[Rfam]
RNA: MIR8024 microRNA precursor family
RNA sequence: UUGGAUGAAUUUAAAGACUUCAACUUGCAUACUUAGAGGAUUUAAGGAAUUCAACUUGCAUACUUAGAAGAAUUUAAAGAAACUUUAAGC
Number, nucleotide and partner (000 for none) at each position: 001u088002u087003g086004g085005a084006u000007g000008a000009a000010u078011u077012u076013a075014a074015a073016g000017a000018c070019u069020u068021c067022a065023a000024c000025u000026u060027g059028c058029a057030u000031a000032c000033u054034u053035a000036g051037a050038g000039g000040a000041u000042u000043u000044a000045a000046g000047g000048a000049a000050u037051u036052c000053a034054a033055c000056u000057u029058g028059c027060a026061u000062a000063c000064u000065u022066a000067g021068a020069a019070g018071a000072a000073u015074u014075u013076a012077a011078a010079g000080a000081a000082a000083c000084u005085u004086u003087a002088a001089g000090c000